Shown here is a 91-nucleotide RNA sequence from Vagococcus allomyrinae, a member of the family "RNA anti-toxin A". The family has 16 seed sequences and 190 matches in Rfam 15.1. Pairs were carried over by alignment from the consensus structure, which was predicted with RNAalifold. On this family, see Fozo et al., Nucleic Acids Res 2010: "Abundance of type I toxin-antitoxin systems in bacteria: searches for new candidates and discovery of novel families". The family's RNA type in Rfam is antitoxin RNA. The organism belongs to Vagococcus, within Bacteria.
RNA sequence: UGAUGAAGAUAAUGAAAAAGGACAUGCGCUAACAUGUCCCCAUAGAGUAGCACCGUUAAAGAUGGUGAUGAGAGAAUUACUUUAUUCUAAA
Numbered sequence: 001u002g003a004u005g006a007a008g009a010u011a012a013u014g015a016a017a018a019a020g021g022a023c024a025u026g027c028g029c030u031a032a033c034a035u036g037u038c039c040c041c042a043u044a045g046a047g048u049a050g051c052a053c054c055g056u057u058a059a060a061g062a063u064g065g066u067g068a069u070g071a072g073a074g075a076a077u078u079a080c081u082u083u084a085u086u087c088u089a090a091a
Stems, first nucleotide, its partner, number of pairs: 023036004052066006